[Rfam]
RNA sequence: CUGGUUAAACACGCAAACUUGUUUGUCAAACAUUGCGUUUGACGCAAAUGUUUGCACGUUUAGCCA
Numbered sequence: 001c002u003g004g005u006u007a008a009a010c011a012c013g014c015a016a017a018c019u020u021g022u023u024u025g026u027c028a029a030a031c032a033u034u035g036c037g038u039u040u041g042a043c044g045c046a047a048a049u050g051u052u053u054g055c056a057c058g059u060u061u062a063g064c065c066a
Base pairs, nucleotide, nucleotide: 002066003065004064005063006062007061008060009059010058015053016052017051018050020048024044025043026042027041028040029039030038031037
RNA: mir-9436 microRNA precursor family
Organism: Nematostella vectensis